[Rfam]
RNA sequence: UACGUGCUCCGGGGUCGGUGGGAAUCCGAACCGGCGGUACAGUCCGCGACCCGCGGAGGGCUCAGGCCCGAGGCGGUUGAGCCGGUUCGAUUCCGGCACCGACGGUGAUCAGGCCCCUCAGCCUGUAGUCCGGAUGGGAGGCAGCACGAA
Numbered sequence: 001u002a003c004g005u006g007c008u009c010c011g012g013g014g015u016c017g018g019u020g021g022g023a024a025u026c027c028g029a030a031c032c033g034g035c036g037g038u039a040c041a042g043u044c045c046g047c048g049a050c051c052c053g054c055g056g057a058g059g060g061c062u063c064a065g066g067c068c069c070g071a072g073g074c075g076g077u078u079g080a081g082c083c084g085g086u087u088c089g090a091u092u093c094c095g096g097c098a099c100c101g102a103c104g105g106u107g108a109u110c111a112g113g114c115c116c117c118u119c120a121g122c123c124u125g126u127a128g129u130c131c132g133g134a135u136g137g138g139a140g141g142c143a144g145c146a147c148g149a150a
Stems, first nucleotide, its partner, number of pairs: 003148006009141002016028003032101002034047004042099002051076004081097005103132003